[Rfam]
RNA sequence: CAUAAACAAAGACCUCCUAACUUUGUUUAUGAAAUCCUAAAACUUUUCUUUUUCAUAAUAAUCUCCCUAAAAGGCCACCAAAUCCGGUGGUCUUUUA
Numbered sequence: 001c002a003u004a005a006a007c008a009a010a011g012a013c014c015u016c017c018u019a020a021c022u023u024u025g026u027u028u029a030u031g032a033a034a035u036c037c038u039a040a041a042a043c044u045u046u047u048c049u050u051u052u053u054c055a056u057a058a059u060a061a062u063c064u065c066c067c068u069a070a071a072a073g074g075c076c077a078c079c080a081a082a083u084c085c086g087g088u089g090g091u092c093u094u095u096u097a
Stems, first nucleotide, its partner, number of pairs: 001031011071094009
RNA: Cia-dependent small RNA csRNA1